[Rfam]
RNA: Ribosomal protein L10 leader
RNA sequence: GUGAAAUAACCAUUUGUACCGUAGACAGUAGGGGCGACUUGUCGCAUAAUGAUCCUACCGAGGACAGAUAGGCUGACUCUUUUAAAGAUGAUGUUUAUGCCCUUGUGUCUACAUGCGUAGAUGCAAGGGCUUUUUUGUUAAGGU
Number, nucleotide and partner (000 for none) at each position: 001g000002u000003g000004a000005a000006a000007u000008a000009a000010c000011c000012a000013u000014u000015u000016g000017u000018a000019c000020c000021g000022u000023a000024g000025a000026c000027a000028g058029u057030a056031g055032g054033g053034g045035c044036g043037a000038c000039u000040u000041g000042u000043c036044g035045c034046a000047u000048a000049a000050u000051g000052a000053u033054c032055c031056u030057a029058c028059c000060g000061a000062g000063g000064a000065c000066a000067g000068a000069u000070a000071g000072g000073c000074u000075g000076a000077c000078u000079c000080u000081u000082u000083u000084a000085a000086a000087g000088a000089u000090g000091a000092u000093g000094u000095u000096u000097a000098u000099g000100c129101c128102c127103u126104u125105g124106u123107g122108u121109c120110u119111a118112c000113a000114u000115g000116c000117g000118u111119a110120g109121a108122u107123g106124c105125a104126a103127g102128g101129g100130c000131u000132u000133u000134u000135u000136u000137g000138u000139u000140a000141a000142g000143g000144u000